[Rfam]
RNA sequence: AGCGCGGUGCGCGACUGGCGAUAGGCCUCAUGGUUUCACAACUCUGAAGGCCGACGUGGGACACCACGGGGAAGCGCACCGUUUGAGGUCAUCUGGCCAAAAAGCGUUCAGCCGUUCGCCUGGGCAGCCCUU
Numbered sequence: 001a002g003c004g005c006g007g008u009g010c011g012c013g014a015c016u017g018g019c020g021a022u023a024g025g026c027c028u029c030a031u032g033g034u035u036u037c038a039c040a041a042c043u044c045u046g047a048a049g050g051c052c053g054a055c056g057u058g059g060g061a062c063a064c065c066a067c068g069g070g071g072a073a074g075c076g077c078a079c080c081g082u083u084u085g086a087g088g089u090c091a092u093c094u095g096g097c098c099a100a101a102a103a104g105c106g107u108u109c110a111g112c113c114g115u116u117c118g119c120c121u122g123g124g125c126a127g128c129c130c131u132u
Base pairs, nucleotide, nucleotide: 004082005081006080007079008078009077010076011075012074015071016070017120018119019118020117021116056067057066058065059064109127111125112124113123
Overview:
A member of the RNA family "ZMP/ZTP riboswitch aptamer (pfl RNA motif)" from Polaromonas naphthalenivorans, 132 nucleotides long.